[Rfam]
RNA sequence: UAAAUAGAUUCAUUUGUACCGUAGACAGUAGGAGCGGCGUGCCGCUUAAUAUUCCUGCCGAGGACAAGACGCUCUUUUAUUAAAGAUGACGACUUAUUCUGCCCUCGUGCCUACUUCGUAGAACGAGGGCUUUUUAUAUCGGUAU
Number, nucleotide and partner (000 for none) at each position: 001u000002a000003a000004a000005u000006a000007g000008a000009u000010u000011c000012a000013u000014u000015u000016g000017u000018a000019c000020c000021g000022u000023a000024g000025a000026c000027a000028g058029u057030a056031g055032g054033a053034g045035c044036g043037g000038c000039g000040u000041g000042c000043c036044g035045c034046u000047u000048a000049a000050u000051a000052u000053u033054c032055c031056u030057g029058c028059c000060g000061a000062g000063g000064a000065c000066a000067a000068g000069a000070c000071g000072c000073u000074c000075u000076u000077u000078u000079a000080u000081u000082a000083a000084a000085g000086a000087u000088g000089a000090c000091g000092a000093c000094u000095u000096a000097u000098u000099c000100u000101g130102c129103c128104c127105u126106c125107g124108u123109g000110c121111c000112u000113a000114c000115u000116u000117c000118g000119u000120a000121g110122a000123a108124c107125g106126a105127g104128g103129g102130c101131u000132u000133u000134u000135u000136a000137u000138a000139u000140c000141g000142g000143u000144a000145u000

This 145-nucleotide sequence from Sporosarcina sp. HYO08 belongs to the Rfam family "Ribosomal protein L10 leader".
The match comes from Rfam's covariance-model search (80 bits).
It is annotated as a cis-regulatory leader.
The source organism's lineage runs through Bacteria, Bacillota, Bacilli, Caryophanaceae and Sporosarcina.
Rfam describes the family as follows. This family is a putative r-protein leader autoregulatory structure found in B. subtilis and other low-GC Gram-positive bacteria. It is located in the 5' untranslated regions of mRNAs encoding ribosomal proteins L10 and L12 (rplJ-rplL). A Rho-independent transcription terminator structure that is probably involved in regulation is included at the 3' end.